The record is a 46-nucleotide RNA from Moschus moschiferus, which matches "Histone 3' UTR stem-loop" in Rfam. By type it is a cis-regulatory element. NCBI's taxonomy places the organism under Eukaryota, Bilateria, Chordata, Theria, Moschus.
RNA sequence: CCAAAGGCUCUUUUCAGAGCCCCCACUAUUUCAAAAUGAGAGCUAG
Number, nucleotide and partner (000 for none) at each position: 001c000002c000003a000004a000005a000006g021007g020008c019009u018010c017011u016012u000013u000014u000015c000016a011017g010018a009019g008020c007021c006022c000023c000024c000025a000026c000027u000028a000029u000030u000031u000032c000033a000034a000035a000036a000037u000038g000039a000040g000041a000042g000043c000044u000045a000046g000